[Rfam]
RNA sequence: GCGAUGAGCUGAAUUGUGUAAGACGAGCACAUGCCUUAAAUGGCGAGCACAAUGUGGAGUGCUGUGACCUCGCCUCAAUUUUCGAAAGAAGACACUUGCUAUAGGCAGGUGUC
Number, nucleotide and partner (000 for none) at each position: 001g000002c000003g000004a000005u000006g000007a000008g000009c000010u000011g000012a000013a000014u078015u077016g076017u000018g074019u000020a000021a000022g000023a000024c072025g071026a070027g069028c066029a065030c064031a000032u000033g044034c043035c000036u000037u000038a000039a000040a000041u000042g000043g034044c033045g000046a063047g062048c000049a060050c059051a000052a000053u000054g000055u000056g000057g000058a000059g050060u049061g000062c047063u046064g030065u029066g028067a000068c000069c027070u026071c025072g024073c000074c018075u000076c016077a015078a014079u000080u000081u000082u000083c000084g000085a000086a000087a000088g000089a000090a000091g113092a112093c111094a110095c109096u108097u107098g106099c105100u000101a000102u000103a000104g000105g099106c098107a097108g096109g095110u094111g093112u092113c091

The record is a 113-nucleotide RNA sequence from Bacillus sp. FJAT-27916, which matches "BsrF" in Rfam. The source organism's lineage runs through Bacteria, Bacillota, Bacilli, Caryophanales and Bacillus. A search with the family's covariance model found it, with a score of 74 bits.